[Rfam]
Description
Shown here is a 72-nucleotide sequence from Ruegeria marina, a member of the family "Singlet oxygen resistance RNA X".
RNA sequence: AACCCGUUCAUGUCCGGGCAAUGACAUGAACCUCCCUGUUGGACUGGCCGGGCCUGGCGCCCGGCCUUUUUU
Numbered sequence: 001a002a003c004c005c006g007u008u009c010a011u012g013u014c015c016g017g018g019c020a021a022u023g024a025c026a027u028g029a030a031c032c033u034c035c036c037u038g039u040u041g042g043a044c045u046g047g048c049c050g051g052g053c054c055u056g057g058c059g060c061c062c063g064g065c066c067u068u069u070u071u072u
Base pairs, nucleotide, nucleotide: 008029009028010027011026012025013024014023046066047065048064049063050062051061052060053059
SorX (RSs2461)like SorY is a singlet oxygen induced sRNA that counteracts oxidative stress by targeting mRNA for a transporter in Rhodobacter. It also has an impact on resistance against organic hydroperoxides. The family's RNA type in Rfam is small RNA. It scores 90 bits against the family's covariance model. Lineage of the source: Bacteria > Pseudomonadati > Alphaproteobacteria > Rhodobacterales > Ruegeria. Its family is annotated with response to photooxidative stress in the Gene Ontology.